The record is a 67-nucleotide sequence from Sporosarcina limicola, which matches "Bacillaceae-1 RNA" in Rfam.
RNA sequence: GUAUAUGGUAUAAAUCCUAAAUUCGCCGCAUCGUGCGGUAACGGAUACAUGACCAGCUUCCUGCUGA
Numbered sequence: 001g002u003a004u005a006u007g008g009u010a011u012a013a014a015u016c017c018u019a020a021a022u023u024c025g026c027c028g029c030a031u032c033g034u035g036c037g038g039u040a041a042c043g044g045a046u047a048c049a050u051g052a053c054c055a056g057c058u059u060c061c062u063g064c065u066g067a
Stems, first nucleotide, its partner, number of pairs: 011049001014046004025039005054066004

The organism belongs to Sporosarcina, within Bacteria. The match comes from Rfam's covariance-model search (52 bits).